[Rfam]
RNA sequence: GGAGUUCUUCGGGCUGUCGUCGGCGGCUUCAUGCCGCGGGAGGAAAGUCCGGACUCCGCAGGGCGCCGUAGCAGGUAACACCUGUCCGCCGCGAGGCGAGGAUCAGAGCAACAGAGACGAGCCGACUUCGGGUCGGGUGAAACGGGCAAUCUCUACGGGGAGCAACAUCAAAUAGGCAGCCGACGGACCGGCCCGGUCCGGCUGCGGGUAGAUGGCUUGAGGCGGCGUGCGAACGCCGUCCUAGACGAAUGACCGCCGCGCGUCCCUUCGGGGACGCGAACAUAAUCCGGCUUACAGAGGGAGUCCCGCU
Numbered sequence: 001g002g003a004g005u006u007c008u009u010c011g012g013g014c015u016g017u018c019g020u021c022g023g024c025g026g027c028u029u030c031a032u033g034c035c036g037c038g039g040g041a042g043g044a045a046a047g048u049c050c051g052g053a054c055u056c057c058g059c060a061g062g063g064c065g066c067c068g069u070a071g072c073a074g075g076u077a078a079c080a081c082c083u084g085u086c087c088g089c090c091g092c093g094a095g096g097c098g099a100g101g102a103u104c105a106g107a108g109c110a111a112c113a114g115a116g117a118c119g120a121g122c123c124g125a126c127u128u129c130g131g132g133u134c135g136g137g138u139g140a141a142a143c144g145g146g147c148a149a150u151c152u153c154u155a156c157g158g159g160g161a162g163c164a165a166c167a168u169c170a171a172a173u174a175g176g177c178a179g180c181c182g183a184c185g186g187a188c189c190g191g192c193c194c195g196g197u198c199c200g201g202c203u204g205c206g207g208g209u210a211g212a213u214g215g216c217u218u219g220a221g222g223c224g225g226c227g228u229g230c231g232a233a234c235g236c237c238g239u240c241c242u243a244g245a246c247g248a249a250u251g252a253c254c255g256c257c258g259c260g261c262g263u264c265c266c267u268u269c270g271g272g273g274a275c276g277c278g279a280a281c282a283u284a285a286u287c288c289g290g291c292u293u294a295c296a297g298a299g300g301g302a303g304u305c306c307c308g309c310u
Stems, first nucleotide, its partner, number of pairs: 001306003005302006011295001012257003016253003020040002023037005045293003049290005054162004061194004066158005071085005086100001087098004101153002106151002108147002122136006166214004176205006185199005221240008
The record is a 310-nucleotide RNA from Sutterella megalosphaeroides, which matches "Bacterial RNase P class A" in Rfam. About the family: Ribonuclease P (RNase P) is a ubiquitous endoribonuclease, found in archaea, bacteria and eukarya as well as chloroplasts and mitochondria. The family's consensus secondary structure is taken from published work. The family's RNA type in Rfam is ribozyme.